RNA sequence: CGUUUCCACAGGGGGAGCUGUUGCUGAGAGUGAAUAGCAAUCGUAAAGAGAGCUAUUCAGACCCUUUGAACCUGUCUAGUUAAUACUAGCGUAGGGAUUGUGGAAGAGAGGUAGG
Numbered sequence: 001c002g003u004u005u006c007c008a009c010a011g012g013g014g015g016a017g018c019u020g021u022u023g024c025u026g027a028g029a030g031u032g033a034a035u036a037g038c039a040a041u042c043g044u045a046a047a048g049a050g051a052g053c054u055a056u057u058c059a060g061a062c063c064c065u066u067u068g069a070a071c072c073u074g075u076c077u078a079g080u081u082a083a084u085a086c087u088a089g090c091g092u093a094g095g096g097a098u099u100g101u102g103g104a105a106g107a108g109a110g111g112u113a114g115g
Base pairs, nucleotide, nucleotide: 006103007102008101009100010099011065012064013063014062017024018023031059032058033057034056035055036054037053038052071095072094073093074092076089077088078087079086
The family of this 115-nucleotide RNA sequence from Caldibacillus thermoamylovorans is "TPP riboswitch aptamer (THI element)". NCBI's taxonomy places the organism under Bacteria, Bacillati, Bacillota, Caryophanales, Caldibacillus. Rfam describes the family as follows. Vitamin B(1) in its active form thiamin pyrophosphate (TPP) is an essential coenzyme that is synthesised by coupling of pyrimidine and thiazole moieties in bacteria. It scores 63 bits against the family's covariance model.